About this RNA:
Rfam assigns this 74-nucleotide RNA sequence from Tessaracoccus oleiagri to the family "tRNA". From the family's description: Transfer RNA (tRNA) molecules are approximately 80 nucleotides in length.

[Rfam]
RNA sequence: GGGCGCAUAGCUCAGUUGGUUAGAGCACCUGCCUUACAAGCAGGGUGUCGGCGGUUCGAGUCCGUCUGUGCCCA
Number, nucleotide and partner (000 for none) at each position: 001g073002g072003g071004c070005g069006c068007a067008u000009a000010g026011c025012u024013c023014a000015g000016u000017u000018g000019g000020u000021u000022a000023g013024a012025g011026c010027a000028c044029c043030u042031g041032c040033c000034u000035u000036a000037c000038a000039a000040g032041c031042a030043g029044g028045g000046u000047g000048u000049c000050g066051g065052c064053g063054g062055u000056u000057c000058g000059a000060g000061u000062c054063c053064g052065u051066c050067u007068g006069u005070g004071c003072c002073c001074a000